[Rfam]
RNA: ZMP/ZTP riboswitch aptamer (pfl RNA motif)
Organism: Aquibacillus koreensis
RNA sequence: UAGACUAUGAGUAACUGGCGAAACGCGGACGACCGCGGGGGAGCUCAUAGUGUCUUAGCCGUUCGCCUGGGCAGAGGUA
Numbered sequence: 001u002a003g004a005c006u007a008u009g010a011g012u013a014a015c016u017g018g019c020g021a022a023a024c025g026c027g028g029a030c031g032a033c034c035g036c037g038g039g040g041g042a043g044c045u046c047a048u049a050g051u052g053u054c055u056u057a058g059c060c061g062u063u064c065g066c067c068u069g070g071g072c073a074g075a076g077g078u079a
Stems, first nucleotide, its partner, number of pairs: 004051009015040002017067005025036004056074001058072003